[Rfam]
RNA: Small nucleolar RNA Z105
Organism: Raphanus sativus
RNA sequence: AAGGCAUGAUGAGGAUUGUUUAUUGUCAUCUGAUUCAUCAUAUGAUGAUUCAAAACCUCCUACUCAUUCUGA
Dot-bracket structure: .....((((................((..(.............)..))...............)))).....